The family of this 504-nucleotide part of an RNA from Halogeometricum rufum is "Archaeal small subunit ribosomal RNA". Its family is annotated with ribosome and structural constituent of ribosome in the Gene Ontology. It is one of the family's seed sequences. The family's consensus secondary structure is taken from published work. Rfam 15.1 lists 709 matches to the family in 491 species. A reference for the family is Yusupov et al. (2001), "Crystal structure of the ribosome at 5.5 A resolution", Science.
[Rfam]
RNA sequence: AUUCCGGUUGAUCCUGCCGGAGGCCAUUGCUAUCGGAGUCCGAUUUAGCCAUGCUAGUUGCGCGAGUUCAGACUCGCAGCAGAUAGCUCAGUAACACGUGGUCAAGCUACCCUGCAGACACGGACAACCUCGGGAAACUGAGGCUAAUCCGCGAUACCGAUCCCACGCUGGAAUGCCGGGAUCUACAAACGCUCCGGCGCUGCAGGAUGCGGCUGCGGCCGAUUAGGUAGACGGUGGGGUAACGGCCCACCGUGCCGAUAAUCGGUACGGGUUGUGAGAGCAAGAGCCCGGAGACGGAAUCUGAGACAAGAUUCCGGGCCCUACGGGGCGCAGCAGGCGCGAAACCUUUACACUGCGCGCAAGUGCGAUAAGGGGACUCCGAGUGCGAGGGCAUAUAGUCCUCGCUUUUGAGAACCGUAAGGUGGUUCUCGAAUAAGAGCUGGGCAAGACCGGUGCCAGCCGCCGCGGUAAUACCGGCAGCUCAAGUGAUGGCCAAUCUUAUUG
Numbered sequence: 001a002u003u004c005c006g007g008u009u010g011a012u013c014c015u016g017c018c019g020g021a022g023g024c025c026a027u028u029g030c031u032a033u034c035g036g037a038g039u040c041c042g043a044u045u046u047a048g049c050c051a052u053g054c055u056a057g058u059u060g061c062g063c064g065a066g067u068u069c070a071g072a073c074u075c076g077c078a079g080c081a082g083a084u085a086g087c088u089c090a091g092u093a094a095c096a097c098g099u100g101g102u103c104a105a106g107c108u109a110c111c112c113u114g115c116a117g118a119c120a121c122g123g124a125c126a127a128c129c130u131c132g133g134g135a136a137a138c139u140g141a142g143g144c145u146a147a148u149c150c151g152c153g154a155u156a157c158c159g160a161u162c163c164c165a166c167g168c169u170g171g172a173a174u175g176c177c178g179g180g181a182u183c184u185a186c187a188a189a190c191g192c193u194c195c196g197g198c199g200c201u202g203c204a205g206g207a208u209g210c211g212g213c214u215g216c217g218g219c220c221g222a223u224u225a226g227g228u229a230g231a232c233g234g235u236g237g238g239g240u241a242a243c244g245g246c247c248c249a250c251c252g253u254g255c256c257g258a259u260a261a262u263c264g265g266u267a268c269g270g271g272u273u274g275u276g277a278g279a280g281c282a283a284g285a286g287c288c289c290g291g292a293g294a295c296g297g298a299a300u301c302u303g304a305g306a307c308a309a310g311a312u313u314c315c316g317g318g319c320c321c322u323a324c325g326g327g328g329c330g331c332a333g334c335a336g337g338c339g340c341g342a343a344a345c346c347u348u349u350a351c352a353c354u355g356c357g358c359g360c361a362a363g364u365g366c367g368a369u370a371a372g373g374g375g376a377c378u379c380c381g382a383g384u385g386c387g388a389g390g391g392c393a394u395a396u397a398g399u400c401c402u403c404g405c406u407u408u409u410g411a412g413a414a415c416c417g418u419a420a421g422g423u424g425g426u427u428c429u430c431g432a433a434u435a436a437g438a439g440c441u442g443g444g445c446a447a448g449a450c451c452g453g454u455g456c457c458a459g460c461c462g463c464c465g466c467g468g469u470a471a472u473a474c475c476g477g478c479a480g481c482u483c484a485a486g487u488g489a490u491g492g493c494c495a496a497u498c499u500u501a502u503u504g
Base pairs, nucleotide, nucleotide: 004020005019006018007017008016022494023493024492025491026490027489028488029487030486031485033382034381035380036379037378038377039376040375041374042340048338049337050336052335053334054333057080058079059078062077063076064075065074066073067072087293088292089291097217098216099215100214101213102212103211106210107209111206112205113204114203115202116201117200119153121151122150128143129142130141131140132139133138159183160182161181162180163179164178167176168175191198192197219265220264221263226256227255228254231253232252233251234250235249236248237247238246268290269289270288271287272283273282274281275280295316296315297314298313299312300311318329319328320327321326346372348371349370350369354367355366356365357364358363385405386404387403388402389401390400391399392398410430411429412428413427414426415425416424437483438482439481440480441479442478450477451476452475453474459466460465